Shown here is a 190-nucleotide sequence from Antrihabitans stalactiti, a member of the family "c-di-AMP riboswitch aptamer (ydaO/yuaA leader)".
Taxonomically the source falls in Antrihabitans (Bacteria, Bacillati, Actinomycetes, Mycobacteriales).

RNA sequence: GUACCGGAACCGACGACUUACACGAGAGACGGGGGCGGGGGACCCACGUUCCCCAGAGGAAUUACUGGAAGGCCUCGACAGAGACCUUCCUUGGGGUGAAGCCAGAAACGCUCUCACAGAGCGCCGAGGCCGGGCGACCUCUCAGCCCGAACCCGACAGCUGACCUCGUAGGCGCGGGCGGAGAGGAUAC
Number, nucleotide and partner (000 for none) at each position: 001g000002u174003a000004c172005c171006g000007g000008a000009a000010c033011c032012g000013a000014c000015g000016a000017c000018u000019u000020a000021c000022a000023c000024g000025a000026g000027a000028g000029a000030c000031g000032g011033g010034g000035g169036c168037g167038g166039g165040g164041g000042a000043c000044c000045c093046a092047c000048g000049u000050u000051c000052c000053c000054c000055a000056g000057a000058g000059g000060a000061a000062u000063u000064a000065c000066u000067g000068g000069a000070a000071g000072g000073c000074c000075u000076c000077g000078a000079c000080a000081g000082a000083g000084a000085c000086c000087u000088u000089c000090c000091u000092u046093g045094g154095g153096g152097u000098g000099a000100a000101g000102c129103c128104a000105g000106a000107a000108a000109c000110g000111c000112u000113c000114u000115c000116a000117c000118a000119g000120a000121g000122c000123g000124c000125c000126g000127a000128g103129g102130c000131c000132g148133g147134g146135c145136g000137a000138c000139c000140u000141c000142u000143c000144a000145g135146c134147c133148c132149g000150a000151a000152c096153c095154c094155g000156a000157c000158a000159g000160c000161u000162g000163a000164c040165c039166u038167c037168g036169u035170a000171g005172g004173c000174g002175c000176g000177g000178g000179c000180g000181g000182a000183g000184a000185g000186g000187a000188u000189a000190c000
The pairing is the family consensus, mapped onto this sequence. The match comes from Rfam's covariance-model search (57 bits).